[Rfam]
RNA sequence: UUGUUUUUUUUUCCUGUGCACAUGCCUCUUUGAAAAUUGGUUCUAAAGAGGUAUGGGACAUAAAUAAAUGGGGUAA
Number, nucleotide and partner (000 for none) at each position: 001u000002u000003g000004u000005u000006u000007u000008u000009u000010u067011u066012u000013c000014c000015u062016g061017u060018g059019c000020a000021c055022a054023u053024g000025c051026c050027u049028c048029u047030u046031u045032g044033a000034a000035a000036a000037u000038u000039g000040g000041u000042u000043c000044u032045a031046a030047a029048g028049a027050g026051g025052u000053a023054u022055g021056g000057g000058a000059c018060a017061u016062a015063a000064a000065u000066a011067a010068a000069u000070g000071g000072g000073g000074u000075a000076a000
The family of this 76-nucleotide sequence from Sclerurus mexicanus is "mir-202 microRNA precursor family". For this family Rfam cites "The developmental miRNA profiles of zebrafish as determined by small RNA cloning" (Chen et al., Genes Dev, 2005).